The family of this 64-nucleotide sequence from Clostridium sp. Maddingley MBC34-26 is "DUF3800-VIII RNA". By type it is a small RNA. Bacteroidetes, Cyanobacteria, Firmicutes, Planctomycetes (1 example), Proteobacteria, Tenericutes (1 example).

RNA sequence: AAUACCUUGUAGAGUUGAAGCCUUAGGUUUAUACCUGAGAGAUUAGUAGACGAUAUGAGGUAUU
Numbered sequence: 001a002a003u004a005c006c007u008u009g010u011a012g013a014g015u016u017g018a019a020g021c022c023u024u025a026g027g028u029u030u031a032u033a034c035c036u037g038a039g040a041g042a043u044u045a046g047u048a049g050a051c052g053a054u055a056u057g058a059g060g061u062a063u064u
Base pairs, nucleotide, nucleotide: 001064002063003062004061005060006059007058008057009056010055011054014051015050016049022039023038024037025036026035027034028033

Taxonomically the source falls in Clostridium (Bacteria, Bacillati, Clostridia, Clostridiaceae).